[Rfam]
Group II catalytic intron D1-D4-3: a 164-nucleotide RNA from Microbulbifer sp. THAF38.

RNA sequence: AACACCGUGAGGUCUUGUGGGGAGGAAGCGGCUAGUAAAGCUAUGAGCUGGCGAACAGAAACAUCCUAUAAGGCUUAACCUGGAGGCGAGGGGCCAAGGGCACCGAACCCGGGUGAUCUAAUAGGUAGAGUCAAUGGUGCAGCUGUGCAGUGAAAGGUCACGUU
Numbered sequence: 001a002a003c004a005c006c007g008u009g010a011g012g013u014c015u016u017g018u019g020g021g022g023a024g025g026a027a028g029c030g031g032c033u034a035g036u037a038a039a040g041c042u043a044u045g046a047g048c049u050g051g052c053g054a055a056c057a058g059a060a061a062c063a064u065c066c067u068a069u070a071a072g073g074c075u076u077a078a079c080c081u082g083g084a085g086g087c088g089a090g091g092g093g094c095c096a097a098g099g100g101c102a103c104c105g106a107a108c109c110c111g112g113g114u115g116a117u118c119u120a121a122u123a124g125g126u127a128g129a130g131u132c133a134a135u136g137g138u139g140c141a142g143c144u145g146u147g148c149a150g151u152g153a154a155a156g157g158u159c160a161c162g163u164u
Stems, first nucleotide, its partner, number of pairs: 001016002004013003028164001031161001036156001040151003044147002046144005062139004067134001073131003078126004083122001085110002090104002092101001
Overview: Pairs were carried over by alignment from the consensus structure. The organism belongs to Microbulbifer, within Bacteria. It scores 82 bits against the family's covariance model.